A member of the RNA family "Selenocysteine insertion sequence 1" from Adineta ricciae, 65 nucleotides long. Gene Ontology term of the family: selenocysteine incorporation.
RNA sequence: UUCUCAUUAUGAUAAUCUCGUAUGAAAAUCCGCUGAUGUACGAGUAUUGGAUGAUUGUCAAAGAA
Numbered sequence: 001u002u003c004u005c006a007u008u009a010u011g012a013u014a015a016u017c018u019c020g021u022a023u024g025a026a027a028a029u030c031c032g033c034u035g036a037u038g039u040a041c042g043a044g045u046a047u048u049g050g051a052u053g054a055u056u057g058u059c060a061a062a063g064a065a
Stems, first nucleotide, its partner, number of pairs: 001065004014048003017044007028037003